[Rfam]
RNA: Glycine riboswitch aptamer
RNA sequence: CACUCUGAAAAGAAGCACGUCGCUUGAAGCGACGAGGCUCGCCCACGGUGAAAGCCGGUUCACCCUGCGGGUGGCCGGUGAAACUCUCAGGCACCAUGACAGAGGG
Numbered sequence: 001c002a003c004u005c006u007g008a009a010a011a012g013a014a015g016c017a018c019g020u021c022g023c024u025u026g027a028a029g030c031g032a033c034g035a036g037g038c039u040c041g042c043c044c045a046c047g048g049u050g051a052a053a054g055c056c057g058g059u060u061c062a063c064c065c066u067g068c069g070g071g072u073g074g075c076c077g078g079u080g081a082a083a084c085u086c087u088c089a090g091g092c093a094c095c096a097u098g099a100c101a102g103a104g105g106g
Stems, first nucleotide, its partner, number of pairs: 001106001003104005014039003041092003045087001048086001050084001054079007